This 71-nucleotide sequence from Skermanella stibiiresistens belongs to the Rfam family "tRNA".
The family is grouped with related families in Rfam's "tRNA clan".
The source organism's lineage runs through Bacteria, Pseudomonadati, Pseudomonadota, Rhodospirillales and Skermanella stibiiresistens.
The base pairs follow the family's consensus structure, which is taken from published work.
Rfam 15.1 lists 5,335,975 matches to the family in 14,413 species.
[Rfam]
RNA sequence: UGGGGGAUCGUCUAGUGGUAGGACAGCGGACUCUGACUCCGCCAGCCUAGGUUCGAAUCCUAGUCCCCCAA
Number, nucleotide and partner (000 for none) at each position: 001u070002g069003g068004g067005g066006g065007a064008u000009c000010g024011u023012c022013u021014a000015g000016u000017g000018g000019u000020a000021g013022g012023a011024c010025a000026g042027c041028g040029g039030a038031c000032u000033c000034u000035g000036a000037c000038u030039c029040c028041g027042c026043c000044a000045g000046c000047c063048u062049a061050g060051g059052u000053u000054c000055g000056a000057a000058u000059c051060c050061u049062a048063g047064u007065c006066c005067c004068c003069c002070a001071a000